Rfam assigns this 114-nucleotide RNA sequence from Helicobacter acinonychis to the family "purD RNA motif".
Rfam links the family to the GO term regulation of gene expression.
Rfam's curators put it in the seed alignment.
[Rfam]
RNA sequence: GUAGUGGUUUUUGUGUGAUGGCAUUUUUUAAAUCUGCCCCUAAUAAGAUUCUCCUAGCCUUAUUGGUGUAGGUUAUUGAACUUAUGCACAUGUAAAAGUAGCGGUCAUCUGGGU
Numbered sequence: 001g002u003a004g005u006g007g008u009u010u011u012u013g014u015g016u017g018a019u020g021g022c023a024u025u026u027u028u029u030a031a032a033u034c035u036g037c038c039c040c041u042a043a044u045a046a047g048a049u050u051c052u053c054c055u056a057g058c059c060u061u062a063u064u065g066g067u068g069u070a071g072g073u074u075a076u077u078g079a080a081c082u083u084a085u086g087c088a089c090a091u092g093u094a095a096a097a098g099u100a101g102c103g104g105u106c107a108u109c110u111g112g113g114u
Base pairs, nucleotide, nucleotide: 003052004051006050007049008048009047010046020038021037022036023035024032025031026030068085069084070083071082072081073080074079
Lineage of the source: Bacteria > Pseudomonadati > Campylobacterota > Helicobacteraceae > Helicobacter acinonychis.